This 116-nucleotide RNA sequence from Paraglaciecola sp. T6c belongs to the Rfam family "Ribosomal S15 leader".
Its family is annotated with regulation of translation, ncRNA-mediated in the Gene Ontology.
[Rfam]
RNA sequence: UGGCAUGGCUGAAUUAGUGAUCGGCCUGCUGUAUUUUAGCUCUUAUAUUGGAGAAAGUUAUGUCACUAACUACUCAAGAAACUGCAGCAAUCAUUGCUGAUUAUGGCGUAAAAGAA
Numbered sequence: 001u002g003g004c005a006u007g008g009c010u011g012a013a014u015u016a017g018u019g020a021u022c023g024g025c026c027u028g029c030u031g032u033a034u035u036u037u038a039g040c041u042c043u044u045a046u047a048u049u050g051g052a053g054a055a056a057g058u059u060a061u062g063u064c065a066c067u068a069a070c071u072a073c074u075c076a077a078g079a080a081a082c083u084g085c086a087g088c089a090a091u092c093a094u095u096g097c098u099g100a101u102u103a104u105g106g107c108g109u110a111a112a113a114g115a116a
Base pairs, nucleotide, nucleotide: 007026008025009024010023011022012021048069049068050067051066053064
Rfam's curators write: The E. coli Ribosomal S15 gene 5' UTR can form two alternative structures. One that is a series of three hairpins, The other includes a pseudoknot. This structure causes translational regulation of the S15 protein.